RNA sequence: GGGCUGGGCAUUCACUAGUGCUGGCACCUAAGAUAACUAACAUUCUUAGUUGUUUGCACUGGUAAUUAUCCGGCUC
Numbered sequence: 001g002g003g004c005u006g007g008g009c010a011u012u013c014a015c016u017a018g019u020g021c022u023g024g025c026a027c028c029u030a031a032g033a034u035a036a037c038u039a040a041c042a043u044u045c046u047u048a049g050u051u052g053u054u055u056g057c058a059c060u061g062g063u064a065a066u067u068a069u070c071c072g073g074c075u076c
Stems, first nucleotide, its partner, number of pairs: 001076008010067001015062006024053003028049003